RNA sequence: UCCGGGGGAAGCUCACCGCCGAGGCCAGCACGGGGUGCGCGUCACCCUCGGCCGCCUCGGGGAAGGUCUGAGGGAAGGGCCGCGAGCGGCCCCAGCAGGGCCCCGCCCGGCCGGGCGGGUGAGCCACCAGCAAGGGGCGGCGCCGCGGGCCGGGACGGGCAGGAGACGCCGCGGGCCGAGAGCUGAGCCCGGCCCCGGCCGAUGCCCCAACCCGCGGCGCUCUGAGACAGACUCACGGCCGGCAGCGCUGAGUCCAAUGGGUGGGGUGGGGCACCGCCCCAUAACCCAAUUCAGACUACUCUCCCCCGGA
Numbered sequence: 001u002c003c004g005g006g007g008g009a010a011g012c013u014c015a016c017c018g019c020c021g022a023g024g025c026c027a028g029c030a031c032g033g034g035g036u037g038c039g040c041g042u043c044a045c046c047c048u049c050g051g052c053c054g055c056c057u058c059g060g061g062g063a064a065g066g067u068c069u070g071a072g073g074g075a076a077g078g079g080c081c082g083c084g085a086g087c088g089g090c091c092c093c094a095g096c097a098g099g100g101c102c103c104c105g106c107c108c109g110g111c112c113g114g115g116c117g118g119g120u121g122a123g124c125c126a127c128c129a130g131c132a133a134g135g136g137g138c139g140g141c142g143c144c145g146c147g148g149g150c151c152g153g154g155a156c157g158g159g160c161a162g163g164a165g166a167c168g169c170c171g172c173g174g175g176c177c178g179a180g181a182g183c184u185g186a187g188c189c190c191g192g193c194c195c196c197g198g199c200c201g202a203u204g205c206c207c208c209a210a211c212c213c214g215c216g217g218c219g220c221u222c223u224g225a226g227a228c229a230g231a232c233u234c235a236c237g238g239c240c241g242g243c244a245g246c247g248c249u250g251a252g253u254c255c256a257a258u259g260g261g262u263g264g265g266g267u268g269g270g271g272c273a274c275c276g277c278c279c280c281a282u283a284a285c286c287c288a289a290u291u292c293a294g295a296c297u298a299c300u301c302u303c304c305c306c307c308g309g310a
Stems, first nucleotide, its partner, number of pairs: 001310004007304003012265006020059005033047005068294005078240004088102005103118006119236005125230001137220003266282007
Nuclear RNase P: a 310-nucleotide sequence from Xiphorhynchus elegans. Lineage of the source: Eukaryota > Deuterostomia > Craniata > Gnathostomata > Xiphorhynchus. Pairs were carried over by alignment from the consensus structure, which is taken from published work. From the family's description: Ribonuclease P (RNase P) is a ubiquitous endoribonuclease, found in archaea, bacteria and eukarya as well as chloroplasts and mitochondria. For this family Rfam cites "Structural implications of novel diversity in eucaryal RNase P RNA" (Marquez et al., RNA, 2005). A search with the family's covariance model found it, with a score of 139 bits.